[Rfam]
This 98-nucleotide RNA sequence from Hydrogenivirga caldilitoris belongs to the Rfam family "Bacterial small signal recognition particle RNA". The base pairs follow the family's consensus structure, which is taken from published work. It is annotated as a non-coding RNA gene.
RNA sequence: UAUAAACAGCCCCGCAACGGGACAGGGUGAACUCCCCCAGGCCCGAAAGGGAGCAAGGGUAAGCCUGCCGUCCCGGGUGCGGGGUAAAAUAUUGCUAU
Numbered sequence: 001u002a003u004a005a006a007c008a009g010c011c012c013c014g015c016a017a018c019g020g021g022a023c024a025g026g027g028u029g030a031a032c033u034c035c036c037c038c039a040g041g042c043c044c045g046a047a048a049g050g051g052a053g054c055a056a057g058g059g060u061a062a063g064c065c066u067g068c069c070g071u072c073c074c075g076g077g078u079g080c081g082g083g084g085u086a087a088a089a090u091a092u093u094g095c096u097a098u
Base pairs, nucleotide, nucleotide: 004092006090009085010084011083012082013081014080015077018075019074020073021072022071023067024066025065026064028062034059035058036057042051043050044049
The signal recognition particle (SRP) is a universally conserved ribonucleoprotein involved in the co-translational targeting of proteins to membranes. Clan: SRP clan. Taxonomically the source falls in Hydrogenivirga (Bacteria, Aquificia, Aquificales, Aquificaceae).